[Rfam]
Nucleotides: 142
Stems, first nucleotide, its partner, number of pairs: 005138006017029003031122002033112002035061004056110002064087003092108005114125003
Number, partner (000 for none) and nucleotide at each position: 001000g002000u003000a004000u005138u006137c007136c008135u009134u010133c011000g012000g013000g014000g015000u016000c017029g018028g019027g020000u021000g022000a023000a024000a025000u026000u027019c028018c029017c030000a031122a032121u033112c034111g035061a036060c037059g038058g039000u040000g041000a042000u043000g044000a045000a046000g047000a048000a049000a050000u051000u052000c053000u054000a055000a056110g057109c058038c059037c060036g061035u062000g063000a064087g065086c066085c067000u068000u069000a070000c071000u072000u073000u074000a075000u076000u077000u078000a079000a080000a081000g082000a083000u084000g085066g086065g087064c088000a089000g090000g091000a092108u093107u094106u095105g096104g097000u098000g099000c100000a101000a102000c103000u104096c105095c106094a107093a108092a109057g110056c111034c112033g113000a114125c115124a116123g117000u118000a119000u120000a121032g122031u123116c124115u125114g126000g127000a128000u129000g130000g131000g132000a133010g134009a135008a136007g137006g138005a139000u140000g141000u142000a
Shown here is a 142-nucleotide RNA from Psychrobacillus soli, a member of the family "FMN riboswitch aptamer (RFN element)". Pairs were carried over by alignment from the consensus structure, which is taken from published work. Rfam's curators write: The RFN element is a highly conserved domain that is found frequently in the 5'-untranslated regions of prokaryotic mRNAs that encode for flavin mononucleotide (FMN) biosynthesis and transport proteins. A search with the family's covariance model found it, with a score of 116 bits.